[Rfam]
RNA: Caulobacter sRNA CrfA
RNA sequence: GAGAACGGAACUUCCCCAGUAGAGUGAAGUCAGUUCCCAGCGUUUCGGGGAGGAAACGCUCGCUUAUAACAAAUAAAAAAGCUCGCCGGGCCUUAUCCCCCCUGUGCGGGCUUUUUUUUGGU
Numbered sequence: 001g002a003g004a005a006c007g008g009a010a011c012u013u014c015c016c017c018a019g020u021a022g023a024g025u026g027a028a029g030u031c032a033g034u035u036c037c038c039a040g041c042g043u044u045u046c047g048g049g050g051a052g053g054a055a056a057c058g059c060u061c062g063c064u065u066a067u068a069a070c071a072a073a074u075a076a077a078a079a080a081g082c083u084c085g086c087c088g089g090g091c092c093u094u095a096u097c098c099c100c101c102c103u104g105u106g107c108g109g110g111c112u113u114u115u116u117u118u119u120g121g122u
Stems, first nucleotide, its partner, number of pairs: 001037001003035002007031001012029002015026001017024001039060008064121003068117001076116011087104004